[Rfam]
RNA sequence: AUAUAAUAAAGCAUAUUGCCGAAGACAGUAGGUGCCGUAAGGCGUAAACGUAAGUGCCUACCGAGGAAUUUUUCGAUGGUUCGCCAUCUUGAAAAUGACUAAUACCUCUCUGUCUAGGCAGAGAGGUUUCUUUGAUUUAUUU
Numbered sequence: 001a002u003a004u005a006a007u008a009a010a011g012c013a014u015a016u017u018g019c020c021g022a023a024g025a026c027a028g029u030a031g032g033u034g035c036c037g038u039a040a041g042g043c044g045u046a047a048a049c050g051u052a053a054g055u056g057c058c059u060a061c062c063g064a065g066g067a068a069u070u071u072u073u074c075g076a077u078g079g080u081u082c083g084c085c086a087u088c089u090u091g092a093a094a095a096u097g098a099c100u101a102a103u104a105c106c107u108c109u110c111u112g113u114c115u116a117g118g119c120a121g122a123g124a125g126g127u128u129u130c131u132u133u134g135a136u137u138u139a140u141u142u
Base pairs, nucleotide, nucleotide: 028061029060030059031058032057033056034043035042036041104127105126106125107124108123109122110121111120112119113118
About this RNA: Shown here is a 142-nucleotide RNA from Lachnospiraceae bacterium C7, a member of the family "Ribosomal protein L10 leader". From the family's description: This family is a putative r-protein leader autoregulatory structure found in B. subtilis and other low-GC Gram-positive bacteria. Pairs were carried over by alignment from the consensus structure, which was predicted with CMfinder. The match comes from Rfam's covariance-model search (81 bits). The organism belongs to Lachnospiraceae, within Bacteria. The family's RNA type in Rfam is cis-regulatory leader.